Rfam assigns this 169-nucleotide RNA from Gomphillus americanus to the family "Small nucleolar RNA snR80".
Rfam classes the family as an H/ACA-box small nucleolar RNA.
The organism belongs to Gomphillus, within Eukaryota.
Pairs were carried over by alignment from the consensus structure, which was predicted with WAR.
RNA sequence: GCCCCUUUGCAUAACACUCGAGCCUUUACCUGUUUAUGCUUCUAUGGUAUUGUGUUCAUUUUUUGAGCAAAGGAGAUUAUCCAUGACCAACUACUCACCGCGGUAUUGAUCGCUUUGCCUCUAGCAGGUCUAAGCCAUGAUUACAGCGGUCCAUAUUUGCGGUCUACAU
Numbered sequence: 001g002c003c004c005c006u007u008u009g010c011a012u013a014a015c016a017c018u019c020g021a022g023c024c025u026u027u028a029c030c031u032g033u034u035u036a037u038g039c040u041u042c043u044a045u046g047g048u049a050u051u052g053u054g055u056u057c058a059u060u061u062u063u064u065g066a067g068c069a070a071a072g073g074a075g076a077u078u079a080u081c082c083a084u085g086a087c088c089a090a091c092u093a094c095u096c097a098c099c100g101c102g103g104u105a106u107u108g109a110u111c112g113c114u115u116u117g118c119c120u121c122u123a124g125c126a127g128g129u130c131u132a133a134g135c136c137a138u139g140a141u142u143a144c145a146g147c148g149g150u151c152c153a154u155a156u157u158u159g160c161g162g163u164c165u166a167c168a169u
Stems, first nucleotide, its partner, number of pairs: 007070003020057004025052001027049004085164004098149004103144003109141003